Notes
Rfam assigns this 68-nucleotide sequence from Arachidicoccus ginsenosidimutans to the family "Fluoride riboswitch aptamer (crcB RNA motif)". Taxonomically the source falls in Arachidicoccus (Bacteria, Pseudomonadati, Bacteroidota, Chitinophagia). The family's consensus secondary structure is taken from published work. Gene Ontology terms of the family: response to fluoride and positive regulation of gene expression. It scores 44 bits against the family's covariance model.
RNA sequence: UUAAAAAAAGGUAAUGGCAUUCUACCUUAUCAACCGCCUUUAAGAAGGACGAUGAUGCCUGUAAAAAU
Numbered sequence: 001u002u003a004a005a006a007a008a009a010g011g012u013a014a015u016g017g018c019a020u021u022c023u024a025c026c027u028u029a030u031c032a033a034c035c036g037c038c039u040u041u042a043a044g045a046a047g048g049a050c051g052a053u054g055a056u057g058c059c060u061g062u063a064a065a066a067a068u
Stems, first nucleotide, its partner, number of pairs: 010026004016059006037048003